[Rfam]
RNA sequence: GCUGACGUGCGUGAUGACUGAACUUUUUUCCCCAACAGACCGACCGUGUUGAUUUUGUUGCUUUUAAGCCAGUUAUGUCUGAUAUGUCGGC
Dot-bracket structure: (((((((((.........................................................................)))))))))
Numbered sequence: 001g002c003u004g005a006c007g008u009g010c011g012u013g014a015u016g017a018c019u020g021a022a023c024u025u026u027u028u029u030c031c032c033c034a035a036c037a038g039a040c041c042g043a044c045c046g047u048g049u050u051g052a053u054u055u056u057g058u059u060g061c062u063u064u065u066a067a068g069c070c071a072g073u074u075a076u077g078u079c080u081g082a083u084a085u086g087u088c089g090g091c
Stems, first nucleotide, its partner, number of pairs: 001091009
The family of this 91-nucleotide RNA sequence from Xenopus laevis is "Small nucleolar SNORD12/SNORD106".
Rfam links the family to the GO terms RNA processing and nucleolus.
Taxonomically the source falls in Xenopus (Eukaryota, Tetrapoda, Amphibia, Xenopus).
The family has 8 seed sequences and 2,264 matches in Rfam 15.1.
The literature on the family includes a 2001 paper in EMBO J by Huttenhofer et al., "RNomics: an experimental approach that identifies 201 candidates for novel, small, non-messenger RNAs in mouse".
The base pairs follow the family's consensus structure, which was predicted with RNAalifold.